[Rfam]
Rfam assigns this 82-nucleotide RNA sequence from Trichoplusia ni to the family "mir-263 microRNA precursor family".
Nucleotides: 082
Base pairs, nucleotide, nucleotide: 003080004079005078007076008075009074010073015068016067017066018065020063021062022061023059025058026057029055030054031053032052034050
Number, partner (000 for none) and nucleotide at each position: 001000c002000c003080g004079c005078a006000c007076u008075g009074a010073g011000c012000c013000u014000u015068g016067g017066c018065a019000c020063u021062g022061g023059g024000a025058g026057a027000a028000u029055u030054c031053a032052c033000a034050g035000g036000a037000g038000u039000u040000g041000u042000g043000u044000a045000a046000a047000u048000a049000c050034c051000c052032g053031u054030g055029a056000a057026u058025u059023u060000c061022c062021u063020g064000a065018u066017g067016c068015c069000u070000c071000a072000g073010c074009u075008u076007a077000u078005u079004g080003u081000g082000g
On this family, see Li et al., BMC Genomics 2009: "Direct sequencing and expression analysis of a large number of miRNAs in Aedes aegypti and a multi-species survey of novel mosquito miRNAs". The family has 52 seed sequences and 368 matches in Rfam 15.1.